[Rfam]
RNA: 6S / SsrS RNA
RNA sequence: AUUAGGGUUCGCUGACGUAAUACUCAUCGAAAAUAAACCUUACAAGCAUAUUUUUGGGGACUGUCCCUGAUGAUGGUGUGCAAGCUCACCUUGUAGUGAGAAGCCUAAAGUCGUUACCAUGGUCACCCACCUUGCAAGCAGAGGUUUAUCUUUCAGAGUGGUCAUCGAGCCUUUUUU
Number, nucleotide and partner (000 for none) at each position: 001a000002u000003u000004a173005g172006g171007g170008u169009u168010c167011g166012c000013u164014g163015a162016c000017g000018u160019a159020a000021u000022a000023c000024u000025c000026a000027u000028c000029g000030a000031a151032a000033a149034u000035a147036a146037a145038c144039c143040u142041u000042a000043c000044a000045a000046g000047c000048a000049u000050a000051u000052u000053u000054u000055u000056g128057g127058g126059g000060a123061c122062u121063g120064u119065c000066c000067c000068u116069g115070a114071u113072g112073a111074u110075g000076g000077u000078g000079u000080g104081c103082a000083a000084g000085c100086u099087c098088a097089c096090c000091u000092u000093g000094u000095a000096g089097u088098g087099a086100g085101a000102a000103g081104c080105c000106u000107a000108a000109a000110g074111u073112c072113g071114u070115u069116a068117c000118c000119a064120u063121g062122g061123u060124c000125a000126c058127c057128c056129a000130c000131c000132u000133u000134g000135c000136a000137a000138g000139c000140a000141g000142a040143g039144g038145u037146u036147u035148a000149u033150c000151u031152u000153u000154c000155a000156g000157a000158g000159u019160g018161g000162u015163c014164a013165u000166c011167g010168a009169g008170c007171c006172u005173u004174u000175u000176u000177u000